[Rfam]
This 82-nucleotide sequence from Aspergillus nidulans belongs to the Rfam family "tRNA". About the family: Transfer RNA (tRNA) molecules are approximately 80 nucleotides in length. Pairs were carried over by alignment from the consensus structure, which is taken from published work. Taxonomically the source falls in Aspergillus subgen. Nidulantes (Eukaryota, Opisthokonta, Ascomycota, leotiomyceta).
RNA sequence: AGAGAGUUGGCUGAGUGGUAAGGCGACUAGCUUGAGUCUAGUUAAGUUAAAACUUUCAUAUGUUCGAAUCAUAUACUCUCUG
Numbered sequence: 001a002g003a004g005a006g007u008u009g010g011c012u013g014a015g016u017g018g019u020a021a022g023g024c025g026a027c028u029a030g031c032u033u034g035a036g037u038c039u040a041g042u043u044a045a046g047u048u049a050a051a052a053c054u055u056u057c058a059u060a061u062g063u064u065c066g067a068a069u070c071a072u073a074u075a076c077u078c079u080c081u082g
Stems, first nucleotide, its partner, number of pairs: 001081007010024003026042005058074005